A member of the RNA family "FMN riboswitch aptamer (RFN element)" from Desulforamulus reducens, 146 nucleotides long. The sequence is in the family's curated seed alignment.
RNA sequence: ACUUGUUCUCAGGGCGGGGUGAAAGUCCCUACUGGCGGUAUCCAGUUCACACUGGGAGCCCGCGAGCGCUCCUUAUUAUAUAGGAGGACAGCAGAUCUGGUGAAAAGCCAGGGCCAACGGUAUAGUCCGGAUGAAAGAGGAUAAGG
Numbered sequence: 001a002c003u004u005g006u007u008c009u010c011a012g013g014g015c016g017g018g019g020u021g022a023a024a025g026u027c028c029c030u031a032c033u034g035g036c037g038g039u040a041u042c043c044a045g046u047u048c049a050c051a052c053u054g055g056g057a058g059c060c061c062g063c064g065a066g067c068g069c070u071c072c073u074u075a076u077u078a079u080a081u082a083g084g085a086g087g088a089c090a091g092c093a094g095a096u097c098u099g100g101u102g103a104a105a106a107g108c109c110a111g112g113g114c115c116a117a118c119g120g121u122a123u124a125g126u127c128c129g130g131a132u133g134a135a136a137g138a139g140g141a142u143a144a145g146g
Stems, first nucleotide, its partner, number of pairs: 003144008017029003031126002033116002035063004058114002066092002096112005118129003